[Rfam]
RNA sequence: GGUUUUCAUUGGUUCAAAUCACCUUCAUUUUGAAUUGAAGAUGAUAAAGAAUUCUCCAUUGGAUUGGUAGCAAAUGCUUAUCCCAUUAAGCGGGGGAAAUCCUAUU
Number, nucleotide and partner (000 for none) at each position: 001g000002g000003u000004u000005u000006u000007c000008a000009u000010u000011g000012g020013u000014u000015c000016a000017a000018a000019u000020c012021a000022c000023c000024u000025u000026c000027a000028u000029u000030u000031u000032g000033a000034a000035u000036u000037g000038a000039a000040g000041a000042u000043g000044a000045u000046a000047a000048a000049g000050a000051a000052u000053u000054c095055u094056c093057c092058a086059u085060u000061g000062g000063a000064u000065u000066g082067g081068u080069a079070g078071c000072a000073a000074a000075u000076g000077c000078u070079u069080a068081u067082c066083c000084c000085a059086u058087u000088a000089a000090g000091c000092g057093g056094g055095g054096g000097a000098a000099a000100u000101c000102c000103u000104a000105u000106u000
Description: The record is a 106-nucleotide sequence from Pelargonium endlicherianum, which matches "Plastid-rps12 3UTR RNA" in Rfam. The sequence is in the family's curated seed alignment. Pairs were carried over by alignment from the consensus structure, which was predicted with LocARNA. The family has 1,299 seed sequences and 1,710 matches in Rfam 15.1. It is annotated as a cis-regulatory element. Rfam's curators write: Plastid rpl20 is a non-coding RNA (ncRNA) recognised in plastids.